[Rfam]
RNA sequence: AUGAUGGCAGCGGGAGAGAUCGCCUGUAAGAUGGAGAGGCGGCGCCGAAGGAGUAAGCCUGGCAGCAGGUGAAUCUCUCAGGCAAAAGGACCUCUGCCGGACG
Numbered sequence: 001a002u003g004a005u006g007g008c009a010g011c012g013g014g015a016g017a018g019a020u021c022g023c024c025u026g027u028a029a030g031a032u033g034g035a036g037a038g039g040c041g042g043c044g045c046c047g048a049a050g051g052a053g054u055a056a057g058c059c060u061g062g063c064a065g066c067a068g069g070u071g072a073a074u075c076u077c078u079c080a081g082g083c084a085a086a087a088g089g090a091c092c093u094c095u096g097c098c099g100g101a102c103g
Stems, first nucleotide, its partner, number of pairs: 006098005012092002020042006044083003047079002051077003057070005
RNA: Glycine riboswitch aptamer